[Rfam]
RNA sequence: UCUGCACACCAACCCAAGGGUCGUUAUCAUGCUUGGUUGUGAUGACCCACGCAGCGCGUGCGUAAAGAAACGUCAGAGCCUUGUCGCCUUUUAUAGGCCGUCUUCGUGCCGAUAGAAGUGAAUUCAAGGUCCUACAUUC
Numbered sequence: 001u002c003u004g005c006a007c008a009c010c011a012a013c014c015c016a017a018g019g020g021u022c023g024u025u026a027u028c029a030u031g032c033u034u035g036g037u038u039g040u041g042a043u044g045a046c047c048c049a050c051g052c053a054g055c056g057c058g059u060g061c062g063u064a065a066a067g068a069a070a071c072g073u074c075a076g077a078g079c080c081u082u083g084u085c086g087c088c089u090u091u092u093a094u095a096g097g098c099c100g101u102c103u104u105c106g107u108g109c110c111g112a113u114a115g116a117a118g119u120g121a122a123u124u125c126a127a128g129g130u131c132c133u134a135c136a137u138u139c
Base pairs, nucleotide, nucleotide: 003062004061005060006059007058009056019047020046021045022044023043024042025041026040027039076132078130079129080128081127082126088118089117090116091115092114093113094112096110097109098108
Notes
Shown here is a 139-nucleotide sequence from Astyanax mexicanus, a member of the family "Small nucleolar RNA SNORA68". About the family: U68 is a member of the H/ACA class of small nucleolar RNAs (snoRNAs) which act as guides in the the modification of uridines to pseudouridines. Lineage of the source: Eukaryota > Opisthokonta > Eumetazoa > Otomorpha > Astyanax. The family's consensus secondary structure was predicted with PFOLD. By type it is an H/ACA-box small nucleolar RNA. A search with the family's covariance model found it, with a score of 62 bits. Rfam 15.1 lists 1,079 matches to the family in 643 species. For this family Rfam cites "The family of box ACA small nucleolar RNAs is defined by an evolutionarily conserved secondary structure and ubiquitous sequence elements essential for RNA accumulation" (Ganot et al., Genes Dev, 1997).